The family of this 84-nucleotide RNA from Synaphobranchus kaupii is "Small nucleolar RNA SNORD60". The match comes from Rfam's covariance-model search (59 bits). Pairs were carried over by alignment from the consensus structure, which was predicted with PFOLD. The family's RNA type in Rfam is C/D-box small nucleolar RNA. The source organism's lineage runs through Eukaryota, Deuterostomia, Neopterygii, Synaphobranchidae and Synaphobranchus.
RNA sequence: AGCCUGUGAUGAAUUAAAUCUUCUGACACCUCGUAUGAACUGCUGUGGCAGUACCUGAUUAUAUAUAUAUAUUCUCUGAGGCUC
Numbered sequence: 001a002g003c004c005u006g007u008g009a010u011g012a013a014u015u016a017a018a019u020c021u022u023c024u025g026a027c028a029c030c031u032c033g034u035a036u037g038a039a040c041u042g043c044u045g046u047g048g049c050a051g052u053a054c055c056u057g058a059u060u061a062u063a064u065a066u067a068u069a070u071a072u073u074c075u076c077u078g079a080g081g082c083u084c
Base pairs, nucleotide, nucleotide: 001083002082003081004080039052040051041050042049043048